[Rfam]
RNA sequence: GGAUGCAUUACUGGACAAUUACUCCUUCGGCAGUAGGCUACUAGACUACCAUAAAUGGCCGUAUAAUUAAGCCUCACUGCCAAAGGAGAUUUGUCCGGCAAUUCACCC
Numbered sequence: 001g002g003a004u005g006c007a008u009u010a011c012u013g014g015a016c017a018a019u020u021a022c023u024c025c026u027u028c029g030g031c032a033g034u035a036g037g038c039u040a041c042u043a044g045a046c047u048a049c050c051a052u053a054a055a056u057g058g059c060c061g062u063a064u065a066a067u068u069a070a071g072c073c074u075c076a077c078u079g080c081c082a083a084a085g086g087a088g089a090u091u092u093g094u095c096c097g098g099c100a101a102u103u104c105a106c107c108c
Base pairs, nucleotide, nucleotide: 005104007102008101009100011098012097013096014095015094016093017092018091022088023087024086025085029081030080031079032078033077034076036074
The family of this 108-nucleotide RNA sequence from Olea europaea is "mir-399 microRNA precursor family". For this family Rfam cites "Computational Identification of Plant MicroRNAs and Their Targets, Including a Stress-Induced miRNA" (Jones-Rhoades and Bartel, Mol Cell, 2004). The source organism's lineage runs through Eukaryota, Embryophyta, Spermatophyta, Lamiales and Olea europaea. From the family's description: mir-399 was identified in both Arabidopsis thaliana and Oryza sativa computationally and was later experimentally verified. mir-399 is thought to target mRNAs coding for a phosphatase transporter. The mature sequence is excised from the 3' arm of the hairpin. The family has 13 seed sequences and 2,396 matches in Rfam 15.1. The family's consensus secondary structure was predicted with PFOLD.